[Rfam]
RNA sequence: GAACCGUCGUCGAGAGGCGGCGUUGAACGGACGGGAGUCAGCAGAGGCCAUAGUACAUGGGCGGGCGCUCGCCCGCGCAAGGGC
Numbered sequence: 001g002a003a004c005c006g007u008c009g010u011c012g013a014g015a016g017g018c019g020g021c022g023u024u025g026a027a028c029g030g031a032c033g034g035g036a037g038u039c040a041g042c043a044g045a046g047g048c049c050a051u052a053g054u055a056c057a058u059g060g061g062c063g064g065g066c067g068c069u070c071g072c073c074c075g076c077g078c079a080a081g082g083g084c
Stems, first nucleotide, its partner, number of pairs: 002024001005022007038045002047084003056077001058075004
Dot-bracket structure: .(..(((((((....))))))).).............((....)).(((......(.((((..........)))).)....)))

Group II catalytic intron D1-D4-1: an 84-nucleotide RNA sequence from Paenalicyclobacillus macrosporangiidus. Group II introns are found in rRNA, tRNA and mRNA of organelles in fungi, plants and protists, and also in mRNA in bacteria. Gene Ontology term of the family: Group II intron splicing.